Description: A member of the RNA family "Group II catalytic intron D1-D4-3" from Imtechella halotolerans, 181 nucleotides long. The source organism's lineage runs through Bacteria, Pseudomonadati, Flavobacteriia, Flavobacteriaceae and Imtechella halotolerans. A search with the family's covariance model found it, with a score of 105 bits.
RNA sequence: CUAGUUGUGAAGCUAGGACUGAAGGAAGCGAGACUGCAAAUUUCGGUACUGAGGAACACGAACCAUAUACCGAGGCUAUGAGGUCGGAUGAGUAGACACAUAACUGCGAAGUCCCAAAUAUCACUUUUAGAUAAGCACCGAAGUAGUAGAUAUGGCAGGAAUCGAAAGAAAGAAAGAAAGA
Numbered sequence: 001c002u003a004g005u006u007g008u009g010a011a012g013c014u015a016g017g018a019c020u021g022a023a024g025g026a027a028g029c030g031a032g033a034c035u036g037c038a039a040a041u042u043u044c045g046g047u048a049c050u051g052a053g054g055a056a057c058a059c060g061a062a063c064c065a066u067a068u069a070c071c072g073a074g075g076c077u078a079u080g081a082g083g084u085c086g087g088a089u090g091a092g093u094a095g096a097c098a099c100a101u102a103a104c105u106g107c108g109a110a111g112u113c114c115c116a117a118a119u120a121u122c123a124c125u126u127u128u129a130g131a132u133a134a135g136c137a138c139c140g141a142a143g144u145a146g147u148a149g150a151u152a153u154g155g156c157a158g159g160a161a162u163c164g165a166a167a168g169a170a171a172g173a174a175a176g177a178a179a180g181a
Stems, first nucleotide, its partner, number of pairs: 001016006029180001037172001041167006047160001049158003063155006075147003079143001082139003086114004092107004